[Rfam]
RNA sequence: GUAUGCUAGGUGGGGAGAUAGCGGUGCCCUGUAUCUGCAAUCCGCUAAAGCAGAACUGAAUUCCCAGUAUGCGGCCUGUCUUUGUGGGGACUGUCCCAAGCACGUAGCGUUGAUAGUUGGGUCUUGAGCAACGAGAGUUUGUUGAACCCCGUCAGGUCCGGAAGGAAGCAGCGGCAGACAAGCGAUCUCGUGUGACGCAAGGUAGCCUAGCUUGAGCUAACGACUUGGGCAACGCCCGGAAAGGCUUGUCAACACUGGGUGCAUAG
Dot-bracket structure: .(((((..(((((((.(.(...).).))))...(((((...........)))))))).....((((((....(((...(((((.((((...((..(((((...(((((......((((((((((((.(((.((((((((((((.....((((....(((....)))....))))..)))))))..)))))))...).))))...))))))))...))).))..))))).))...)))).)))))...)))...)))))).))))).
Overview:
Bacterial large signal recognition particle RNA: a 266-nucleotide RNA. For this family Rfam cites "SRPDB: Signal Recognition Particle Database" (Rosenblad et al., Nucleic Acids Res, 2003). The match comes from Rfam's covariance-model search (187 bits). By type it is a non-coding RNA gene.